RNA sequence: CUGCUAUUGCUGGUCAAACGGAACCAAGUCCGUCUUCCCUGGAGGUUUGGUCCCCUUCAACCAGCUAUUACAG
Number, nucleotide and partner (000 for none) at each position: 001c000002u000003g071004c000005u000006a068007u000008u000009g065010c064011u063012g062013g061014u060015c000016a000017a057018a056019c000020g053021g052022a051023a000024c050025c049026a048027a047028g046029u045030c044031c000032g000033u000034c000035u000036u000037c000038c000039c000040u000041g000042g000043a000044g030045g029046u028047u027048u026049g025050g024051u022052c021053c020054c000055c000056u018057u017058c000059a000060a014061c013062c012063a011064g010065c009066u000067a000068u006069u000070a000071c003072a000073g000

Rfam assigns this 73-nucleotide RNA sequence from Leptobrachium leishanense to the family "mir-133 microRNA precursor family". mir-133 was first experimentally characterised in mouse and homologues have since been discovered in several other species. The mature sequence is excised from the 3' arm of the hairpin. NCBI's taxonomy places the organism under Eukaryota, Opisthokonta, Deuterostomia, Chordata, Leptobrachium. The base pairs follow the family's consensus structure, which was predicted with PFOLD. The match comes from Rfam's covariance-model search (62 bits). The family has 127 seed sequences and 3,763 matches in Rfam 15.1.